[Rfam]
RNA sequence: GGUUACCUGAAGGGAAGGUGGCUCCAGUACGAGAGGAACGAGCCAUCGGCACCUCUGGUCAAGCGGUCGUCUGAUAAGGCGUAGCCGCGCAGCUAUGUGCCAGCAGAUAAGGGCUGAAAGCAUCUAAGCCUGAAGCUGCUCCUGAAAAUAGGUGACCAUAAAGGGUUCCUCUAGAAGAGAGGAUUGAUAGAGCCGGGGUGUAAGCAUCAAGCUAACGCGAGAUGUUUAGCCCGCGGCUACUAACACCCGA
Numbered sequence: 001g002g003u004u005a006c007c008u009g010a011a012g013g014g015a016a017g018g019u020g021g022c023u024c025c026a027g028u029a030c031g032a033g034a035g036g037a038a039c040g041a042g043c044c045a046u047c048g049g050c051a052c053c054u055c056u057g058g059u060c061a062a063g064c065g066g067u068c069g070u071c072u073g074a075u076a077a078g079g080c081g082u083a084g085c086c087g088c089g090c091a092g093c094u095a096u097g098u099g100c101c102a103g104c105a106g107a108u109a110a111g112g113g114c115u116g117a118a119a120g121c122a123u124c125u126a127a128g129c130c131u132g133a134a135g136c137u138g139c140u141c142c143u144g145a146a147a148a149u150a151g152g153u154g155a156c157c158a159u160a161a162a163g164g165g166u167u168c169c170u171c172u173a174g175a176a177g178a179g180a181g182g183a184u185u186g187a188u189a190g191a192g193c194c195g196g197g198g199u200g201u202a203a204g205c206a207u208c209a210a211g212c213u214a215a216c217g218c219g220a221g222a223u224g225u226u227u228a229g230c231c232c233g234c235g236g237c238u239a240c241u242a243a244c245a246c247c248c249g250a
Stems, first nucleotide, its partner, number of pairs: 001157008011143004017047008048101005056095003063088005068081005104138003111131005163248004167183005188242003191238005196232003204225005211218001
RNA: Archaeal large subunit ribosomal RNA, nucleotides 2699 to 2948